[Rfam]
The family of this 170-nucleotide RNA sequence from Dorea sp. CAG:105 is "Lysine riboswitch aptamer". The organism belongs to Dorea, within Bacteria. Riboswitches are metabolite binding domains within certain messenger RNAs that serve as precision sensors for their corresponding targets. Allosteric rearrangement of mRNA structure is mediated by ligand binding, and this results in modulation of gene expression.

RNA sequence: GAACUUGAUAGAGGUGCGGAUUUCAUCAGUAAGGAAGAACGAUAGUUUGGAAGACUGUUCUUUCAGAAAGGGGGAUUUGCCGAAGGAGUCAGAUAUUCCGGAUCUGAUUUCUGGGACGCAGACAGAAGAUGUUGCGUACUGUCACAGGAAUGUGGAGCGCUAUCACAGUA
Numbered sequence: 001g002a003a004c005u006u007g008a009u010a011g012a013g014g015u016g017c018g019g020a021u022u023u024c025a026u027c028a029g030u031a032a033g034g035a036a037g038a039a040c041g042a043u044a045g046u047u048u049g050g051a052a053g054a055c056u057g058u059u060c061u062u063u064c065a066g067a068a069a070g071g072g073g074g075a076u077u078u079g080c081c082g083a084a085g086g087a088g089u090c091a092g093a094u095a096u097u098c099c100g101g102a103u104c105u106g107a108u109u110u111c112u113g114g115g116a117c118g119c120a121g122a123c124a125g126a127a128g129a130u131g132u133u134g135c136g137u138a139c140u141g142u143c144a145c146a147g148g149a150a151u152g153u154g155g156a157g158c159g160c161u162a163u164c165a166c167a168g169u170a
Stems, first nucleotide, its partner, number of pairs: 006165006016080009033064007084112011113140002116137004121133004142155005